The family of this 112-nucleotide RNA from Cebus imitator is "Y RNA". The match comes from Rfam's covariance-model search (43 bits). Pairs were carried over by alignment from the consensus structure, which is taken from published work.
RNA sequence: GGCUGGUCUGAAGGCAGCGAGUUAUCUCAGUUGAUUUUCAUAGUUAGUUGCAGGUUGAACUCCUUGCUCCACUCUUGCCCCCCUUCUCACUUCUGCACUUCAUGAGUCUUAA
Numbered sequence: 001g002g003c004u005g006g007u008c009u010g011a012a013g014g015c016a017g018c019g020a021g022u023u024a025u026c027u028c029a030g031u032u033g034a035u036u037u038u039c040a041u042a043g044u045u046a047g048u049u050g051c052a053g054g055u056u057g058a059a060c061u062c063c064u065u066g067c068u069c070c071a072c073u074c075u076u077g078c079c080c081c082c083c084u085u086c087u088c089a090c091u092u093c094u095g096c097a098c099u100u101c102a103u104g105a106g107u108c109u110u111a112a
Stems, first nucleotide, its partner, number of pairs: 001108004006103002010100002014096002016091002019088003043073001047069001